[Rfam]
MIR162_1 microRNA precursor family: a 112-nucleotide sequence from Hibiscus syriacus. Rfam 15.1 lists 270 matches to the family in 158 species. A reference for the family is Reinhart et al. (2002), "MicroRNAs in plants", Genes Dev. NCBI's taxonomy places the organism under Eukaryota, Embryophyta, Spermatophyta, eudicotyledons, Hibiscus. The family's consensus secondary structure was predicted with RNAalifold. Clan: MIR167 microRNA precursor clan. It scores 112 bits against the family's covariance model.
RNA sequence: GGUAAAGACAUUGGAGGCAGCGGUUCAUCGAUCUCUUCCUGGGAAUUUUGUUGUGAGCAUAAAACAAAAUACAUGAAUCGAUCGAUAAACCUCUGCAUCCAGCGCCUUAAUU
Numbered sequence: 001g002g003u004a005a006a007g008a009c010a011u012u013g014g015a016g017g018c019a020g021c022g023g024u025u026c027a028u029c030g031a032u033c034u035c036u037u038c039c040u041g042g043g044a045a046u047u048u049u050g051u052u053g054u055g056a057g058c059a060u061a062a063a064a065c066a067a068a069a070u071a072c073a074u075g076a077a078u079c080g081a082u083c084g085a086u087a088a089a090c091c092u093c094u095g096c097a098u099c100c101a102g103c104g105c106c107u108u109a110a111u112u
Stems, first nucleotide, its partner, number of pairs: 013100003018095003022091004027086007036077003